Annotation
Rfam assigns this 109-nucleotide RNA from Nocardioides iriomotensis to the family "SAM (S-adenosyl methionine) riboswitch aptamer". The family has 40 seed sequences and 2,360 matches in Rfam 15.1. A search with the family's covariance model found it, with a score of 68 bits. The organism belongs to Nocardioides, within Bacteria. Pairs were carried over by alignment from the consensus structure, which is taken from published work. On this family, see Weinberg et al., RNA 2008: "The aptamer core of SAM-IV riboswitches mimics the ligand-binding site of SAM-I riboswitches".

RNA sequence: GGUCACGAGCCCCAGCGCGAAGCCCCGGCUGGCUGGGCGGCAACCCGCACCGCUGCGGGUGCCCCGGAGGACGACCCGCCGCGGCCGCCCGGCCGCGGAACAGCGGACC
Number, nucleotide and partner (000 for none) at each position: 001g076002g075003u074004c073005a000006c000007g000008a000009g038010c000011c037012c036013c035014a034015g033016c032017g000018c000019g000020a000021a030022g029023c000024c000025c000026c000027g000028g000029c022030u021031g000032g016033c015034u014035g013036g012037g011038c009039g063040g062041c061042a000043a000044c059045c058046c057047g000048c055049a054050c000051c000052g000053c000054u049055g048056c000057g046058g045059g044060u000061g041062c040063c039064c000065c000066g000067g000068a000069g000070g000071a000072c000073g004074a003075c002076c001077c000078g000079c098080c097081g096082c095083g094084g093085c092086c091087g000088c000089c000090c000091g086092g085093c084094c083095g082096c081097g080098g079099a000100a000101c000102a000103g000104c000105g000106g000107a000108c000109c000